Rfam assigns this 587-nucleotide part of an RNA from Methylophilales bacterium HTCC2181 to the family "Bacterial large subunit ribosomal RNA". On this family, see Cannone et al., BMC Bioinformatics 2002: "The comparative RNA web (CRW) site: an online database of comparative sequence and structure information for ribosomal, intron, and other RNAs". The match comes from Rfam's covariance-model search (2830 bits). NCBI's taxonomy places the organism under Bacteria, Pseudomonadati, Pseudomonadota, Betaproteobacteria, Nitrosomonadales.

RNA sequence: CCCGCGGUUAGACGGAAAGACCCCAUGCACCUUUACUAUAGCUUUACACUGGACUUGGAUAUCAUCUGUGUAGGAUAGGUGGGAGACGUUGAAGCAGGAUCGCUAGAUCUUGUGGAGUCACCCUUGAAAUACCACCCUGAUGUUGUCUAGGUUCUAACCCAGGUCCCUUAUCGGGAUCGGGGACCGUGUAUGGUGGGUAGUUUGACUGGGGCGGUCUCCUCCCAAAGAGUAACGGAGGAGUGCGAAGGUAACCUAGGCACGGUCGGAAAUCGUGCUGUUAGUGCAAUGGCAUAAGGUUGCUUGACUGCGAGACGGACAGGUCGAGCAGGUACGAAAGUAGGUCAUAGUGAUCCGGUGGUUCUGUAUGGAAGGGCCAUCGCUCAACGGAUAAAAGGUACGCUGGGGAUAACAGGCUGAUUCCUCCCAAGAGUUCAUAUCGACGGGGGAGUUUGGCACCUCGAUGUCGGCUCAUCACAUCCUGGGGCUGUAGUCGGUCCCAAGGGUAUGGCUGUUCGCCAUUUAAAGUGGUACGUGAGCUGGGUUUAAAACGUCGUGAGACAGUUUGGUCCCUAUCUGCCGUGGGCGUU
Numbered sequence: 001c002c003c004g005c006g007g008u009u010a011g012a013c014g015g016a017a018a019g020a021c022c023c024c025a026u027g028c029a030c031c032u033u034u035a036c037u038a039u040a041g042c043u044u045u046a047c048a049c050u051g052g053a054c055u056u057g058g059a060u061a062u063c064a065u066c067u068g069u070g071u072a073g074g075a076u077a078g079g080u081g082g083g084a085g086a087c088g089u090u091g092a093a094g095c096a097g098g099a100u101c102g103c104u105a106g107a108u109c110u111u112g113u114g115g116a117g118u119c120a121c122c123c124u125u126g127a128a129a130u131a132c133c134a135c136c137c138u139g140a141u142g143u144u145g146u147c148u149a150g151g152u153u154c155u156a157a158c159c160c161a162g163g164u165c166c167c168u169u170a171u172c173g174g175g176a177u178c179g180g181g182g183a184c185c186g187u188g189u190a191u192g193g194u195g196g197g198u199a200g201u202u203u204g205a206c207u208g209g210g211g212c213g214g215u216c217u218c219c220u221c222c223c224a225a226a227g228a229g230u231a232a233c234g235g236a237g238g239a240g241u242g243c244g245a246a247g248g249u250a251a252c253c254u255a256g257g258c259a260c261g262g263u264c265g266g267a268a269a270u271c272g273u274g275c276u277g278u279u280a281g282u283g284c285a286a287u288g289g290c291a292u293a294a295g296g297u298u299g300c301u302u303g304a305c306u307g308c309g310a311g312a313c314g315g316a317c318a319g320g321u322c323g324a325g326c327a328g329g330u331a332c333g334a335a336a337g338u339a340g341g342u343c344a345u346a347g348u349g350a351u352c353c354g355g356u357g358g359u360u361c362u363g364u365a366u367g368g369a370a371g372g373g374c375c376a377u378c379g380c381u382c383a384a385c386g387g388a389u390a391a392a393a394g395g396u397a398c399g400c401u402g403g404g405g406a407u408a409a410c411a412g413g414c415u416g417a418u419u420c421c422u423c424c425c426a427a428g429a430g431u432u433c434a435u436a437u438c439g440a441c442g443g444g445g446g447a448g449u450u451u452g453g454c455a456c457c458u459c460g461a462u463g464u465c466g467g468c469u470c471a472u473c474a475c476a477u478c479c480u481g482g483g484g485c486u487g488u489a490g491u492c493g494g495u496c497c498c499a500a501g502g503g504u505a506u507g508g509c510u511g512u513u514c515g516c517c518a519u520u521u522a523a524a525g526u527g528g529u530a531c532g533u534g535a536g537c538u539g540g541g542u543u544u545a546a547a548a549c550g551u552c553g554u555g556a557g558a559c560a561g562u563u564u565g566g567u568c569c570c571u572a573u574c575u576g577c578c579g580u581g582g583g584c585g586u587u
Base pairs, nucleotide, nucleotide: 001583002582003581004580005579006578007577008576010575011574012573014570015569022404023403024402025401027400028399029396030395031394032393033392035201036200037199038198042193043192045190046189047188048187051154052153053152054151055150056149057148058147059146060145061144063142064141065140066139068137078136079135080134081133082132085119086118087117094113095112096111097110098109099108100107101106158181159180160179162178163177164176165175166174167173204216205215206214207213217239218238219237220236221235222234240385242342243341248300249299250298251297252296253295254280255279257275258274259273260272261271262270281290282289305328306327307326308325311322312321313320330339331338332337353379354378355377356376357375358374359373361372362371413454414453415452417451418448419447420446421445422444423443424442428438429437465540466538467537468536469535470532471529472528473527474526475525478503479502481498482497483496484495485494486493505519506518507517508516509515546564547563548562549561550559551558552557